[Rfam]
RNA sequence: GGGCUCGUGGUCUAGCGGCUAUGACGUCGCCCUUACAAGGCGGAGACCGCCGGUUCGAAUCCGGCCGGGCCCA
Numbered sequence: 001g002g003g004c005u006c007g008u009g010g011u012c013u014a015g016c017g018g019c020u021a022u023g024a025c026g027u028c029g030c031c032c033u034u035a036c037a038a039g040g041c042g043g044a045g046a047c048c049g050c051c052g053g054u055u056c057g058a059a060u061c062c063g064g065c066c067g068g069g070c071c072c073a
Base pairs, nucleotide, nucleotide: 001072002071003070004069005068006067007066010025011024012023027043028042029041030040031039049065050064051063052062053061